[Rfam]
RNA sequence: UGUCGGAAUAUCUGCUAAAAUUCCGCAUUUUUCCGUCCCGGGACACUCGGGGCGUAUGUUCAAUUUGUCGGAAUGGAGUUUUAGGGAUAUGGGCUUGAAAAA
Numbered sequence: 001u002g003u004c005g006g007a008a009u010a011u012c013u014g015c016u017a018a019a020a021u022u023c024c025g026c027a028u029u030u031u032u033c034c035g036u037c038c039c040g041g042g043a044c045a046c047u048c049g050g051g052g053c054g055u056a057u058g059u060u061c062a063a064u065u066u067g068u069c070g071g072a073a074u075g076g077a078g079u080u081u082u083a084g085g086g087a088u089a090u091g092g093g094c095u096u097g098a099a100a101a102a
Stems, first nucleotide, its partner, number of pairs: 002094003008090006015084011034054009059072003
This 102-nucleotide RNA from Neisseria meningitidis belongs to the Rfam family "Lst 5' UTR thermometer". Three independent RNA thermosensors were identified in the 5'UTRs of genes needed for: capsule biosynthesis (cssA), the expression of factor H binding protein (fHbp) and sialylation of lipopolysaccharide, which is essential for bacterial resistance against immune killing (lst). The very different nucleotide sequence and predicted inhibitory structures of the three RNATs indicate that they have evolved independently. Rfam's curators put it in the seed alignment. Rfam classes the family as an RNA thermoregulator. Pairs were carried over by alignment from the consensus structure. Rfam links the family to the GO terms translation repressor activity and response to temperature stimulus. Lineage of the source: Bacteria > Pseudomonadati > Neisseriaceae > Neisseria meningitidis > Neisseria meningitidis serogroup B.